Overview:
The family of this 400-nucleotide RNA from Cyanobacteria bacterium FACHB-502 is "Bacterial RNase P class A". The source organism's lineage runs through Bacteria, Bacillati and Cyanobacteriota. It scores 245 bits against the family's covariance model. Rfam describes the family as follows. Ribonuclease P (RNase P) is a ubiquitous endoribonuclease, found in archaea, bacteria and eukarya as well as chloroplasts and mitochondria. The family's RNA type in Rfam is ribozyme.

Nucleotides: 400
Stems, first nucleotide, its partner, number of pairs: 001396005007390002011386001012346007020034006039384003043381005048235004057283001060280001062230003066227002068082005083097001084095004098225002103223002105219003119166002121162007174192006194214001195212007239303002242300001249294001274288004310329008
Number, partner (000 for none) and nucleotide at each position: 001396a002395g003394a004393g005392g006000a007390g008389g009000c010000g011386a012346g013345g014344c015343a016342g017341u018340u019000g020034c021033g022032g023031g024030c025029a026000u027000u028000u029025u030024g031023c032022c033021u034020g035000a036000g037000g038000a039384a040383a041382g042000u043381c044380c045379g046378g047377g048235c049234u050233u051232c052000c053000g054000a055000a056000a057283g058000a059000c060280c061000a062230g063229a064228c065000u066227u067226g068082c069081u070080g071079g072078g073000u074000a075000a076000c077000g078072c079071c080070c081069a082068g083097u084095g085094c086093g087092c088000g089000c090000a091000a092087g093086c094085g095084u096000g097083a098225g099224g100000a101000g102000a103223g104222u105219g106218c107217c108000a109000c110000a111000g112000a113000a114000a115000c116000a117000u118000a119166c120165c121162g122161c123160c124159a125158g126157g127156a128000c129000a130000g131000u132000u133000u134000a135000g136000a137000a138000c139000u140000c141000a142000a143000a144000a145000u146000u147000c148000u149000g150000g151000a152000u153000u154000a155000u156127u157126c158125c159124u160123g161122g162121u163000a164000a165120g166119g167000g168000u169000g170000c171000a172000a173000a174192g175191g176190u177189g178188c179187g180000g181000u182000a183000a184000g185000a186000g187179c188178g189177c190176a191175c192174c193000a194214g195212c196211a197210a198209c199208g200207u201206c202000g203000a204000g205000a206201g207200g208199c209198g210197u211196u212195g213000g214194c215000u216000c217107g218106g219105u220000a221000a222104a223103c224099c225098c226067c227066g228064g229063u230062c231000g232051g233050a234049a235048g236000c237000a238000a239303g240302g241000u242300u243000g244000a245000a246000g247000g248000a249294g250000c251000a252000a253000g254000g255000g256000u257000u258000g259000g260000u261000c262000u263000u264000u265000u266000u267000c268000c269000c270000g271000c272000u273000c274288c275287g276286g277285g278000u279000a280060g281000c282000g283057u284000u285277c286276u287275u288274g289000g290000a291000c292000g293000c294249u295000g296000c297000g298000a299000a300242a301000u302240c303239c304000g305000c306000u307000a308000g309000a310329g311328g312327u313326g314325u315324c316323u317322g318000g319000u320000a321000a322317c323316a324315g325314g326313c327312a328311u329310c330000c331000c332000a333000g334000a335000u336000a337000g338000a339000u340018a341017a342016c343015u344014g345013c346012u347000c348000c349000u350000u351000g352000g353000g354000g355000c356000g357000a358000a359000u360000c361000g362000u363000u364000c365000c366000a367000a368000g369000a370000g371000a372000c373000a374000g375000a376000a377047c378046c379045c380044g381043g382041c383040u384039u385000a386011u387000g388000a389008c390007c391000g392005c393004c394003u395002c396001u397000u398000c399000c400000c